[Rfam]
RNA: U11 spliceosomal RNA
Nucleotides: 154
Base pairs, nucleotide, nucleotide: 008107009106010105011104012103013042014041015040016039043078044077045076046075047074049073050072051071052070053069054068079102080101081100082099083098084097085096125152126151127150128149130148131147132146133145134144139143
Number, partner (000 for none) and nucleotide at each position: 001000a002000a003000a004000a005000a006000g007000g008107g009106c010105g011104u012103c013042u014041g015040c016039u017000u018000a019000u020000u021000u022000g023000u024000u025000u026000u027000u028000g029000g030000c031000u032000u033000a034000u035000g036000a037000a038000u039016a040015g041014c042013a043078c044077a045076u046075g047074g048000u049073u050072g051071u052070u053069u054068u055000u056000u057000a058000a059000u060000a061000u062000u063000u064000u065000u066000u067000u068054a069053a070052g071051a072050c073049a074047c075046c076045g077044u078043g079102c080101g081100g082099a083098a084097u085096g086000g087000c088000u089000a090000u091000c092000g093000a094000g095000a096085c097084a098083u099082u100081u101080c102079g103012g104011a105010c106009g107008c108000a109000u110000a111000a112000u113000c114000u115000u116000u117000g118000a119000a120000a121000a122000c123000c124000g125152g126151a127150g128149c129000a130148g131147u132146u133145g134144g135000u136000u137000u138000a139143c140000u141000c142000a143139g144134c145133c146132g147131g148130c149128g150127c151126u152125c153000c154000a